[Rfam]
RNA sequence: CAAAAAAAUAGGGCCACCCAUAGGGGCGGCCCCGCUUUUUUGAAUCAUACGAGAUGAAACAAAAAAGUAAAGGGAGAGGAGAAACCGGAGGAAGAGCUUAUGGGGAUGUAAGCCUUCUCCGUUU
Numbered sequence: 001c002a003a004a005a006a007a008a009u010a011g012g013g014c015c016a017c018c019c020a021u022a023g024g025g026g027c028g029g030c031c032c033c034g035c036u037u038u039u040u041u042g043a044a045u046c047a048u049a050c051g052a053g054a055u056g057a058a059a060c061a062a063a064a065a066a067g068u069a070a071a072g073g074g075a076g077a078g079g080a081g082a083a084a085c086c087g088g089a090g091g092a093a094g095a096g097c098u099u100a101u102g103g104g105g106a107u108g109u110a111a112g113c114c115u116u117c118u119c120c121g122u123u124u
Stems, first nucleotide, its partner, number of pairs: 011032005017026003033074001035072003086121004091117004096113005

The family of this 124-nucleotide sequence from Halobacillus karajensis is "ylbH leader". Rfam's curators write: This family is a putative regulatory RNA structure that is found upstream of the ylbH gene in B. subtilis and related low GC Gram-positive bacteria. The source organism's lineage runs through Bacteria, Bacillati, Bacillota, Bacillaceae and Halobacillus. Its family is annotated with regulation of gene expression in the Gene Ontology. A reference for the family is Barrick et al. (2004), "New RNA motifs suggest an expanded scope for riboswitches in bacterial genetic control", Proc Natl Acad Sci U S A. Rfam classes the family as a cis-regulatory leader.